The record is a 118-nucleotide sequence from Novosphingobium olei, which matches "Glycine riboswitch aptamer" in Rfam. Rfam links the family to the GO term glycine biosynthetic process. The literature on the family includes a 2017 paper in MBio by Babina et al., "In Vivo Behavior of the Tandem Glycine Riboswitch in Bacillus subtilis". From the family's description: This family represents the bacterial glycine riboswitch. The organism belongs to Novosphingobium, within Bacteria.
Nucleotides: 118
Stems, first nucleotide, its partner, number of pairs: 006113008020063008065098003068094002072092003078086002
Number, partner (000 for none) and nucleotide at each position: 001000g002000c003000u004000g005000a006113u007112c008111g009110c010109g011108c012107g013106g014000g015000a016000g017000a018000g019000g020063u021062c022061c023060u024059g025058c026057g027056a028000u029000u030000c031000g032000g033000g034000c035000u036000u037000c038000c039000g040000g041000u042000g043000a044000c045000g046000g047000a048000g049000g050000c051000c052000g053000g054000g055000u056027u057026c058025g059024c060023a061022g062021g063020g064000c065098g066097c067096c068094g069093a070000a071000g072092g073091a074090g075000c076000a077000a078086c079085c080000g081000c082000c083000c084000c085079g086078g087000a088000a089000u090074c091073u092072c093069u094068c095000a096067g097066g098065c099000a100000a101000a102000a103000g104000g105000a106013c107012c108011g109010c110009g111008u112007g113006g114000g115000u116000c117000g118000a